[Rfam]
The record is a 318-nucleotide RNA from Octodon degus, which matches "Mason-Pfizer monkey virus packaging signal" in Rfam. It scores 74 bits against the family's covariance model. The family's consensus secondary structure was predicted with PFOLD. From the family's description: This family represents a group of sequences that are related to the Mason-Pfizer monkey virus (MPMV) packaging signal. The packaging signal is located in the 5' UTR and is required for specific RNA encapsidation. Rfam 15.1 lists 2,921 matches to the family in 53 species. Taxonomically the source falls in Octodon (Eukaryota, Eumetazoa, Sarcopterygii, Amniota).
RNA sequence: UGGCGCCCAACGUGGGCCAUCUGGUAGGGAGAAUACAGCGAUGGAACCAUCCCAGAGAGCCGGCAAGAGCAAGCCGGCAAAAGAGAAAGUAAAAGAGGCAAAAGAAAAAAUAAAAGAGGCCUGCGCCGCAGUUGCCUGCUGCGACGUCUGAACCUCGGUAAACGGACGGCACCCCUUUCCCCUUUCCUUCGGCAAGGGACAGUCAUUAAGUGAACAUGAGAUAUUUGUAGAAAGUUUGAGUAAAGUAUUAAAGGCGUGAGGAGUAAAGGUUAAAAUUAAGGAUUUGUGUCAAUAUUUUGAAUAUAUUAAACAAAAUUU
Numbered sequence: 001u002g003g004c005g006c007c008c009a010a011c012g013u014g015g016g017c018c019a020u021c022u023g024g025u026a027g028g029g030a031g032a033a034u035a036c037a038g039c040g041a042u043g044g045a046a047c048c049a050u051c052c053c054a055g056a057g058a059g060c061c062g063g064c065a066a067g068a069g070c071a072a073g074c075c076g077g078c079a080a081a082a083g084a085g086a087a088a089g090u091a092a093a094a095g096a097g098g099c100a101a102a103a104g105a106a107a108a109a110a111u112a113a114a115a116g117a118g119g120c121c122u123g124c125g126c127c128g129c130a131g132u133u134g135c136c137u138g139c140u141g142c143g144a145c146g147u148c149u150g151a152a153c154c155u156c157g158g159u160a161a162a163c164g165g166a167c168g169g170c171a172c173c174c175c176u177u178u179c180c181c182c183u184u185u186c187c188u189u190c191g192g193c194a195a196g197g198g199a200c201a202g203u204c205a206u207u208a209a210g211u212g213a214a215c216a217u218g219a220g221a222u223a224u225u226u227g228u229a230g231a232a233a234g235u236u237u238g239a240g241u242a243a244a245g246u247a248u249u250a251a252a253g254g255c256g257u258g259a260g261g262a263g264u265a266a267a268g269g270u271u272a273a274a275a276u277u278a279a280g281g282a283u284u285u286g287u288g289u290c291a292a293u294a295u296u297u298u299g300a301a302u303a304u305a306u307u308a309a310a311c312a313a314a315a316u317u318u
Stems, first nucleotide, its partner, number of pairs: 006057001008055001012052001014050001060077004116156004123149001124146001127143005167202001169200001172198002207250003210246002257299005263293002267285005313318001